Notes
Rfam assigns this 76-nucleotide sequence from Trifolium pratense to the family "Small nucleolar RNA Z155". The source organism's lineage runs through Eukaryota, Euphyllophyta, Magnoliopsida, Papilionoideae and Trifolium. The base pairs follow the family's consensus structure. Rfam 15.1 lists 429 matches to the family in 196 species. Rfam classes the family as a C/D-box small nucleolar RNA.

[Rfam]
RNA sequence: CAUUGAAUUGAUGAUAUACUGAUCCGAAUUUAUCAUGUAGAUUGUAAAAUUUCAGACUACAAUUAUCUGAUCAAUG
Numbered sequence: 001c002a003u004u005g006a007a008u009u010g011a012u013g014a015u016a017u018a019c020u021g022a023u024c025c026g027a028a029u030u031u032a033u034c035a036u037g038u039a040g041a042u043u044g045u046a047a048a049a050u051u052u053c054a055g056a057c058u059a060c061a062a063u064u065a066u067c068u069g070a071u072c073a074a075u076g
Base pairs, nucleotide, nucleotide: 001076002075003074004073005072006071